[Rfam]
RNA sequence: UCACCCUGACCAGUGGUGAGGUGAGCAAAGGCUGGGAUCGGUAAUCCCAAGGUCUGCGGAUCGAACCCGGUCAGGGAAG
Numbered sequence: 001u002c003a004c005c006c007u008g009a010c011c012a013g014u015g016g017u018g019a020g021g022u023g024a025g026c027a028a029a030g031g032c033u034g035g036g037a038u039c040g041g042u043a044a045u046c047c048c049a050a051g052g053u054c055u056g057c058g059g060a061u062c063g064a065a066c067c068c069g070g071u072c073a074g075g076g077a078a079g
Stems, first nucleotide, its partner, number of pairs: 004076008013068001015067003020062003025057003030054003033049006
RNA: mir-5729 microRNA precursor family
Organism: Tetranychus urticae